[Rfam]
RNA sequence: UUAAUCGUUUACUAGUUAUUAAGCUUUCCAAGAGAUAACUGGGGCUAUCCAGUCAUCUGGAUUUCGAGUGGCUCCUGUCCACUCUGUUUGACGCCUCCCUGUUAACGACUUUGAGCCGCGGGUUCCGCGGCUCUUUUUUU
Number, nucleotide and partner (000 for none) at each position: 001u043002u042003a000004a040005u014006c000007g000008u000009u000010u000011a000012c000013u000014a005015g000016u000017u000018a000019u000020u035021a000022a000023g000024c000025u030026u000027u000028c000029c000030a025031a000032g000033a000034g000035a020036u000037a000038a000039c000040u004041g000042g002043g001044g000045c000046u000047a062048u061049c060050c059051a000052g000053u000054c000055a000056u000057c000058u000059g050060g049061a048062u047063u000064u000065c000066g084067a083068g082069u081070g080071g079072c000073u000074c000075c000076u000077g000078u000079c071080c070081a069082c068083u067084c066085u000086g000087u000088u000089u000090g103091a102092c101093g100094c000095c000096u000097c000098c000099c000100u093101g092102u091103u090104a000105a000106c000107g000108a000109c000110u000111u000112u000113g133114a132115g131116c130117c129118g128119c127120g126121g125122g000123u000124u000125c121126c120127g119128c118129g117130g116131c115132u114133c113134u000135u000136u000137u000138u000139u000140u000